[Rfam]
RNA sequence: CCUCCCUAUCUAACACUAGGACCUCCCAGUGUCCGUGCAGAGUUCUAGCUCAAAAAGGGGACAAACUAUCUUGCUCUCUUCCCUCCCUGCUGGAUUGUGUUCCUUCUGGGGCCCUAAGAGAAGCAGACAGU
Number, nucleotide and partner (000 for none) at each position: 001c000002c000003u061004c060005c059006c058007u057008a000009u055010c000011u053012a000013a000014c000015a000016c048017u047018a046019g045020g044021a043022c000023c040024u039025c000026c037027c000028a000029g000030u000031g000032u000033c000034c000035g000036u000037g026038c000039a024040g023041a000042g000043u021044u020045c019046u018047a017048g016049c000050u000051c000052a000053a011054a000055a009056a000057g007058g006059g005060g004061a003062c000063a000064a000065a000066c000067u000068a000069u000070c000071u000072u125073g124074c123075u000076c000077u120078c000079u000080u000081c000082c000083c000084u000085c110086c109087c108088u000089g106090c000091u000092g103093g102094a101095u000096u000097g000098u000099g000100u000101u094102c093103c092104u000105u000106c089107u000108g087109g086110g085111g000112c000113c000114c000115u000116a000117a000118g000119a000120g077121a000122a000123g074124c073125a072126g000127a000128c000129a000130g000131u000

Description: A member of the RNA family "Small nucleolar RNA SNORA49" from Stegastes partitus, 131 nucleotides long. The source organism's lineage runs through Eukaryota, Opisthokonta, Clupeocephala, Euacanthomorphacea and Stegastes. The snoRNA ACA49 has no identified RNA target. NB genomic sequence 1-nt different from published.